[Rfam]
RNA sequence: CCUGUGGACUAUACAAGAACUUGUGAGUAGUAUUAGUAAUAAUACAAAAGCAUAUAGGUAGAAGCAGGAA
Numbered sequence: 001c002c003u004g005u006g007g008a009c010u011a012u013a014c015a016a017g018a019a020c021u022u023g024u025g026a027g028u029a030g031u032a033u034u035a036g037u038a039a040u041a042a043u044a045c046a047a048a049a050g051c052a053u054a055u056a057g058g059u060a061g062a063a064g065c066a067g068g069a070a
Base pairs, nucleotide, nucleotide: 001068002067003066004065005064009057010056011055012054013053022052023051024050030045031044032043033042034041

The family of this 70-nucleotide RNA is "RAGATH-18 RNA". Rfam's curators put it in the seed alignment.